[Rfam]
RNA sequence: CUGAUCAACGCGUGCGGGUCAAUUGCGGCUUGCAACACCCGAUCUCCCUCAACGUGCCUCCCUCGAUGGAGCUCGAAGAGGGGGAGCGCGUGACCGUCAG
Numbered sequence: 001c002u003g004a005u006c007a008a009c010g011c012g013u014g015c016g017g018g019u020c021a022a023u024u025g026c027g028g029c030u031u032g033c034a035a036c037a038c039c040c041g042a043u044c045u046c047c048c049u050c051a052a053c054g055u056g057c058c059u060c061c062c063u064c065g066a067u068g069g070a071g072c073u074c075g076a077a078g079a080g081g082g083g084g085a086g087c088g089c090g091u092g093a094c095c096g097u098c099a100g
Stems, first nucleotide, its partner, number of pairs: 001100005008091006015041004023035005043085008053075001
Rfam assigns this 100-nucleotide RNA sequence from Natronococcus occultus to the family "L4-Archaeoglobi ribosomal protein leades". The organism belongs to Natronococcus occultus, within Archaea. The literature on the family includes a 2020 paper in BMC Microbiol by Eckert and Weinberg, "Discovery of 20 novel ribosomal leader candidates in bacteria and archaea". Rfam classes the family as a cis-regulatory leader.